[Rfam]
RNA sequence: GAGCUGGCUUAGUCAUGUGGUUACUUCGAUUUAUUACUUACCUGUGUGCCUAAACAAGAAGAGGAGAACGAGUUCGAGACUUCUGUUUCAGCAUUAAACCACCGACGCCAUCCAGCCAAUUG
Numbered sequence: 001g002a003g004c005u006g007g008c009u010u011a012g013u014c015a016u017g018u019g020g021u022u023a024c025u026u027c028g029a030u031u032u033a034u035u036a037c038u039u040a041c042c043u044g045u046g047u048g049c050c051u052a053a054a055c056a057a058g059a060a061g062a063g064g065a066g067a068a069c070g071a072g073u074u075c076g077a078g079a080c081u082u083c084u085g086u087u088u089c090a091g092c093a094u095u096a097a098a099c100c101a102c103c104g105a106c107g108c109c110a111u112c113c114a115g116c117c118a119a120u121u122g
Stems, first nucleotide, its partner, number of pairs: 003116005012106003017102004025078005